[Rfam]
Nucleotides: 064
Base pairs, nucleotide, nucleotide: 001064002063003062004061005060006059007058008057009056010055011054012053013052014051015050016049017048018047019046020045021044022043023042024041025040028039029038030037031036
Number, partner (000 for none) and nucleotide at each position: 001064g002063g003062c004061u005060u006059c007058c008057c009056u010055c011054u012053g013052u014051g015050g016049g017048g018047c019046a020045a021044u022043u023042g024041a025040u026000u027000g028039c029038u030037g031036g032000g033000c034000c035000c036031c037030c038029a039028g040025a041024u042023u043022g044021a045020u046019u047018g048017c049016c050015c051014u052013g053012c054011a055010g056009a057008g058007g059006g060005a061004g062003g063002c064001c